The record is a 102-nucleotide RNA sequence from Paenactinomyces guangxiensis, which matches "pan motif" in Rfam. The base pairs follow the family's consensus structure, which is taken from published work. It is annotated as a cis-regulatory element. Taxonomically the source falls in Paenactinomyces (Bacteria, Bacillota, Bacilli, Caryophanales). A search with the family's covariance model found it, with a score of 59 bits.

RNA sequence: UAGGCGGCAUCUGUCAAGAGCUGCACUAUUGCCUUUUGAUUAAUGAAUUGUUUCGAUAAUCUUGUUAAAUCUGCUUCGAGCCGUUGGGACGGAGACAGAGGG
Numbered sequence: 001u002a003g004g005c006g007g008c009a010u011c012u013g014u015c016a017a018g019a020g021c022u023g024c025a026c027u028a029u030u031g032c033c034u035u036u037u038g039a040u041u042a043a044u045g046a047a048u049u050g051u052u053u054c055g056a057u058a059a060u061c062u063u064g065u066u067a068a069a070u071c072u073g074c075u076u077c078g079a080g081c082c083g084u085u086g087g088g089a090c091g092g093a094g095a096c097a098g099a100g101g102g
Stems, first nucleotide, its partner, number of pairs: 001028003004024005010019002071098003074094005081088002
Dot-bracket structure: ((((((((.((......))))))).)))..........................................((((((((..((....)).))))).)))....